Shown here is a 54-nucleotide RNA from Angustibacter sp. Root456, a member of the family "L31-Actinobacteria ribosomal protein leader".
Its Rfam clan is "Ribosomal Protein L31 Leader clan".
Taxonomically the source falls in Angustibacter (Bacteria, Actinomycetota, Kineosporiales, Kineosporiaceae).

[Rfam]
Nucleotides: 054
Base pairs, nucleotide, nucleotide: 003054004053005052007049008048009047010046015043016042017041018040021037023035
Number, partner (000 for none) and nucleotide at each position: 001000c002000u003054g004053g005052u006000u007049c008048c009047g010046g011000u012000u013000c014000a015043c016042g017041u018040c019000c020000c021037g022000c023035g024000g025000c026000a027000c028000u029000c030000c031000g032000c033000c034000g035023c036000c037021c038000c039000u040018g041017a042016c043015g044000a045000c046010c047009c048008g049007g050000c051000g052005a053004c054003c